Annotation: A member of the RNA family "MIR2275 microRNA precursor family" from Tetracentron sinense, 91 nucleotides long. A search with the family's covariance model found it, with a score of 62 bits. The organism belongs to Tetracentron, within Eukaryota.

RNA sequence: AAAUCGUAUGUGAGAAUUGGAGGAGACUAAACGGAUAGGCAUUGCCCUUCUGCAUUCUGUUUAGUUUCCUCCAAUAUCUUACCUCCGGCAU
Numbered sequence: 001a002a003a004u005c006g007u008a009u010g011u012g013a014g015a016a017u018u019g020g021a022g023g024a025g026a027c028u029a030a031a032c033g034g035a036u037a038g039g040c041a042u043u044g045c046c047c048u049u050c051u052g053c054a055u056u057c058u059g060u061u062u063a064g065u066u067u068c069c070u071c072c073a074a075u076a077u078c079u080u081a082c083c084u085c086c087g088g089c090a091u
Stems, first nucleotide, its partner, number of pairs: 004088003008084001011081004016075006023068008032059002